Overview: Shown here is a 46-nucleotide RNA from Urbifossiella limnaea, a member of the family "Acido-Lenti-1 RNA". Taxonomically the source falls in Urbifossiella (Bacteria, Pseudomonadati, Planctomycetia, Gemmataceae). The match comes from Rfam's covariance-model search (39 bits). The family's RNA type in Rfam is small RNA.

[Rfam]
RNA sequence: CCCGGGGCUUCCACCCCGGGCUACGCACGGCCGCCGCUCCGCGGCU
Numbered sequence: 001c002c003c004g005g006g007g008c009u010u011c012c013a014c015c016c017c018g019g020g021c022u023a024c025g026c027a028c029g030g031c032c033g034c035c036g037c038u039c040c041g042c043g044g045c046u
Stems, first nucleotide, its partner, number of pairs: 001020007033045005